[Rfam]
Rfam assigns this 35-nucleotide sequence from Mus musculus to the family "Iron response element I". For this family Rfam cites "Identification of the iron-responsive element for the translational regulation of human ferritin mRNA" (Hentze et al., Science, 1987). By type it is a cis-regulatory element.

RNA sequence: CUAUGUCUUACUUCAACAGUGUUUGGACAGGACAG
Numbered sequence: 001c002u003a004u005g006u007c008u009u010a011c012u013u014c015a016a017c018a019g020u021g022u023u024u025g026g027a028c029a030g031g032a033c034a035g
Base pairs, nucleotide, nucleotide: 001035002034004032006031007030008029012027013026014025015024016023017021